[Rfam]
RNA sequence: CUGGGAGCCGUGUUAACCGGACGCGACAGGGAUGGUGAACGCAGCGGCUUUUUCCCGUUUCACCCUGCGGCCAACGAAAUGGCAGUCGAGCAUCCAACCUGUCCGGCUC
Numbered sequence: 001c002u003g004g005g006a007g008c009c010g011u012g013u014u015a016a017c018c019g020g021a022c023g024c025g026a027c028a029g030g031g032a033u034g035g036u037g038a039a040c041g042c043a044g045c046g047g048c049u050u051u052u053u054c055c056c057g058u059u060u061c062a063c064c065c066u067g068c069g070g071c072c073a074a075c076g077a078a079a080u081g082g083c084a085g086u087c088g089a090g091c092a093u094c095c096a097a098c099c100u101g102u103c104c105g106g107c108u109c
Stems, first nucleotide, its partner, number of pairs: 006108004011023004025103006034094004040069005046063001070083003

The family of this 109-nucleotide RNA sequence is "Rhizobiales sRNA Atu_At1". It is one of the family's seed sequences. The base pairs follow the family's consensus structure, which was predicted with CMfinder. By type it is a small RNA.